[Rfam]
RNA: c-di-GMP-I riboswitch aptamer
RNA sequence: AAGUGAAAACGGCAAACCUUCGGAAACGUUGGGACGCAAAGCUAUGAAUCUAAAGUAUUAUAUACUAUGAUUGUCAGGCUGCCACA
Numbered sequence: 001a002a003g004u005g006a007a008a009a010c011g012g013c014a015a016a017c018c019u020u021c022g023g024a025a026a027c028g029u030u031g032g033g034a035c036g037c038a039a040a041g042c043u044a045u046g047a048a049u050c051u052a053a054a055g056u057a058u059u060a061u062a063u064a065c066u067a068u069g070a071u072u073g074u075c076a077g078g079c080u081g082c083c084a085c086a
Stems, first nucleotide, its partner, number of pairs: 012037002017032002021028002040080004045076003048071003055065004